[Rfam]
RNA sequence: CCCCUUUCAUCGGCGGCGCGCGACGCCUAUAUUCCAGGUGCCGGCGCAAGCCGGAUAUGGCGAUAAACGGUUGUCGGAAUAAACCUUUCGGACCCGGGGGCAGUACCCGGCGCCUCCACCAAAGCCCACAACGUCCGCGCGAAAACGCUGGCGGGUUGGGCUCCGGCGGGGGCGAAACAGGAUCGACGAGGGCGUAAAGGGCUUUCUUUCGCUCGGCAUGGUUCCGCCGAUAUCGGGCCGUCCUAUAGUUGCGAAUGACAACUAUGCUCCGGUUGCCGUUGCCGCGUGAGCGGUAAAGGUACCGAAAUAAAGUCCUAGCCGGGUAGCUCUGGUUAGGCGGGGUUCGGAGGCACCUGGCAACAGAAGCCUCCACU
Numbered sequence: 001c002c003c004c005u006u007u008c009a010u011c012g013g014c015g016g017c018g019c020g021c022g023a024c025g026c027c028u029a030u031a032u033u034c035c036a037g038g039u040g041c042c043g044g045c046g047c048a049a050g051c052c053g054g055a056u057a058u059g060g061c062g063a064u065a066a067a068c069g070g071u072u073g074u075c076g077g078a079a080u081a082a083a084c085c086u087u088u089c090g091g092a093c094c095c096g097g098g099g100g101c102a103g104u105a106c107c108c109g110g111c112g113c114c115u116c117c118a119c120c121a122a123a124g125c126c127c128a129c130a131a132c133g134u135c136c137g138c139g140c141g142a143a144a145a146c147g148c149u150g151g152c153g154g155g156u157u158g159g160g161c162u163c164c165g166g167c168g169g170g171g172g173c174g175a176a177a178c179a180g181g182a183u184c185g186a187c188g189a190g191g192g193c194g195u196a197a198a199g200g201g202c203u204u205u206c207u208u209u210c211g212c213u214c215g216g217c218a219u220g221g222u223u224c225c226g227c228c229g230a231u232a233u234c235g236g237g238c239c240g241u242c243c244u245a246u247a248g249u250u251g252c253g254a255a256u257g258a259c260a261a262c263u264a265u266g267c268u269c270c271g272g273u274u275g276c277c278g279u280u281g282c283c284g285c286g287u288g289a290g291c292g293g294u295a296a297a298g299g300u301a302c303c304g305a306a307a308u309a310a311a312g313u314c315c316u317a318g319c320c321g322g323g324u325a326g327c328u329c330u331g332g333u334u335a336g337g338c339g340g341g342g343u344u345c346g347g348a349g350g351c352a353c354c355u356g357g358c359a360a361c362a363g364a365a366g367c368c369u370c371c372a373c374u
Base pairs, nucleotide, nucleotide: 041054042053043052044051059213060212061211062210063209069206070205073202074201075200084192085191086190088189089188090187094110095109096108097107098106111174112173113172114171115170116169117168214229215228216227217226219240220239221238223237224236225235340355341354342353343352346371347370348369349368350367351366
Shown here is a 374-nucleotide RNA sequence from Azorhizobium oxalatiphilum, a member of the family "Alphaproteobacteria transfer-messenger RNA". It scores 284 bits against the family's covariance model. Bacterial tmRNA, also known as 10Sa RNA or SsrA, is named for its dual tRNA and mRNA-like properties. Its role is to liberate the mRNA from a stalled ribosome. To accomplish this part of the tmRNA is used as a reading frame that ends in a translation stop signal. The broken mRNA is replaced in the ribosome by the tmRNA and translation of the tmRNA leads to addition of a proteolysis tag to the incomplete protein enabling recognition by a protease. Clan: tRNA clan.